[Rfam]
RNA: mir-2807 microRNA precursor family
RNA sequence: UUAAGUCAAAUAUGUAUGGUGUUGGAACAGCAACCCUAGCGGCAAACGAAAGGAAACUGUUCCAACUGUAAACAAAUUUGAGUUA
Numbered sequence: 001u002u003a004a005g006u007c008a009a010a011u012a013u014g015u016a017u018g019g020u021g022u023u024g025g026a027a028c029a030g031c032a033a034c035c036c037u038a039g040c041g042g043c044a045a046a047c048g049a050a051a052g053g054a055a056a057c058u059g060u061u062c063c064a065a066c067u068g069u070a071a072a073c074a075a076a077u078u079u080g081a082g083u084u085a
Stems, first nucleotide, its partner, number of pairs: 008079004013074003018069001021066009034053002039047001
Dot-bracket structure: .......((((.(((..(..(((((((((....((...(.......)....))....)))))))))..)..))).))))......